[Rfam]
Rfam assigns this 117-nucleotide sequence from Alkaliphilus metalliredigens to the family "FMN riboswitch aptamer (RFN element)". For this family Rfam cites "Regulation of riboflavin biosynthesis and transport genes in bacteria by transcriptional and translational attenuation" (Vitreschak et al., Nucleic Acids Res, 2002). The family's consensus secondary structure is taken from published work.
RNA sequence: UAUAAUCUUCAGGGCAGGGUGUAAUUCCCGACCGGCGGUAAAGUCCGCGAGCCACAAUGUGGUUGACUUGGUGAAACUCCAAGACCGACAGUAAAGUCUGGAUGGAAGAAGAACAGU
Numbered sequence: 001u002a003u004a005a006u007c008u009u010c011a012g013g014g015c016a017g018g019g020u021g022u023a024a025u026u027c028c029c030g031a032c033c034g035g036c037g038g039u040a041a042a043g044u045c046c047g048c049g050a051g052c053c054a055c056a057a058u059g060u061g062g063u064u065g066a067c068u069u070g071g072u073g074a075a076a077c078u079c080c081a082a083g084a085c086c087g088a089c090a091g092u093a094a095a096g097u098c099u100g101g102a103u104g105g106a107a108g109a110a111g112a113a114c115a116g117u
Base pairs, nucleotide, nucleotide: 003115006112007111008110009109010108017029018028019027031097032096033087034086035048036047037046038045043085044084051063052062067083068082069081070080071079089100090099091098